The family of this 124-nucleotide sequence from a Polyangiaceae bacterium is "TPP riboswitch aptamer (THI element)". A search with the family's covariance model found it, with a score of 64 bits. Taxonomically the source falls in Polyangiaceae (Bacteria, Pseudomonadati, Polyangia, Polyangiales).
RNA sequence: CGAACACGCUAGGGGAGCCCAUUCGUGGGCUGAGAGGCGCGCAGCUCGGUUCGUCGAAAGAGGCGCGCGACCCUUUGCACCUGACCCGGUUCGCACCGGCGGAGGAAAGCGAAUGAGCUCGACC
Dot-bracket structure: ......((((((((..(((((....)))))......(((((......................)))))..)))).....(((...((((......))))...)))..)))).............